The family of this 97-nucleotide sequence from Upupa epops is "Small nucleolar RNA SNORD21". Its family is annotated with nucleolus and RNA processing in the Gene Ontology. The match comes from Rfam's covariance-model search (92 bits). For this family Rfam cites "SnoRNA U21 is also intron-encoded in Drosophila melanogaster but in a different host-gene as compared to warm-blooded vertebrates" (Renalier et al., FEBS Lett, 1996). The organism belongs to Upupa, within Eukaryota. It is annotated as a C/D-box small nucleolar RNA.

RNA sequence: GCUACAUGAUGAUAAUCCCAAUGACUGAGCACUCUCUAGUUGGUCCAUGGUGUGUAUGUGAUGUGCUGCUCUGUUUCAAGACGGGACUGAUGGCGGC
Numbered sequence: 001g002c003u004a005c006a007u008g009a010u011g012a013u014a015a016u017c018c019c020a021a022u023g024a025c026u027g028a029g030c031a032c033u034c035u036c037u038a039g040u041u042g043g044u045c046c047a048u049g050g051u052g053u054g055u056a057u058g059u060g061a062u063g064u065g066c067u068g069c070u071c072u073g074u075u076u077c078a079a080g081a082c083g084g085g086a087c088u089g090a091u092g093g094c095g096g097c
Base pairs, nucleotide, nucleotide: 001094002093003092004091